[Rfam]
The record is a 140-nucleotide RNA sequence from Limnobaculum parvum, which matches "Phenylalanine leader peptide" in Rfam. By type it is a cis-regulatory leader. Its family is annotated with cellular amino acid metabolic process in the Gene Ontology. NCBI's taxonomy places the organism under Bacteria, Pseudomonadota, Gammaproteobacteria, Budviciaceae, Limnobaculum. On this family, see Zurawski et al., Proc Natl Acad Sci U S A 1978: "Nucleotide sequence of the leader region of the phenylalanine operon of Escherichia coli".

RNA sequence: UAUGCGCUAUAUACCGUUUUUCUUCGCUUUCUUUUUUAGCGUCCCCUGACUGGGAGGCGAUUCGUCCGUGGCUUGGAAACGAGCAGAGAUAAAGCGAAGACGAACAUUAAAGCCUCCCACCACCGGGGGGCUUUUUUAUU
Dot-bracket structure: ...............((((.((((((((((.(((.(.....((((......))))((((...))))..................).))).)))))))))).))))...((((((((((......))))))))))......
Numbered sequence: 001u002a003u004g005c006g007c008u009a010u011a012u013a014c015c016g017u018u019u020u021u022c023u024u025c026g027c028u029u030u031c032u033u034u035u036u037u038a039g040c041g042u043c044c045c046c047u048g049a050c051u052g053g054g055a056g057g058c059g060a061u062u063c064g065u066c067c068g069u070g071g072c073u074u075g076g077a078a079a080c081g082a083g084c085a086g087a088g089a090u091a092a093a094g095c096g097a098a099g100a101c102g103a104a105c106a107u108u109a110a111a112g113c114c115u116c117c118c119a120c121c122a123c124c125g126g127g128g129g130g131c132u133u134u135u136u137u138a139u140u
Stems, first nucleotide, its partner, number of pairs: 016105004021100010032089003036085001042055004056066004109134010